[Rfam]
RNA sequence: GCUUCUCAACGAAAGCCCUACCUCUCUUUCAUCCUCACAGUUCCUUGACUGCGCCGGUCUUACUAAUCUUUCAUGGAUUCCA
Numbered sequence: 001g002c003u004u005c006u007c008a009a010c011g012a013a014a015g016c017c018c019u020a021c022c023u024c025u026c027u028u029u030c031a032u033c034c035u036c037a038c039a040g041u042u043c044c045u046u047g048a049c050u051g052c053g054c055c056g057g058u059c060u061u062a063c064u065a066a067u068c069u070u071u072c073a074u075g076g077a078u079u080c081c082a
Base pairs, nucleotide, nucleotide: 029062031060034057035056036053038051039050040049041048042047

A member of the RNA family "BsrC" from Alkalicoccus daliensis, 82 nucleotides long. Pairs were carried over by alignment from the consensus structure, which was predicted with CMfinder. It is annotated as a small RNA. From the family's description: The 301 nucleotide sequence from Kouji Nakamura has been trimmed to a highly conserved ~85 nucleotide long core to form this family.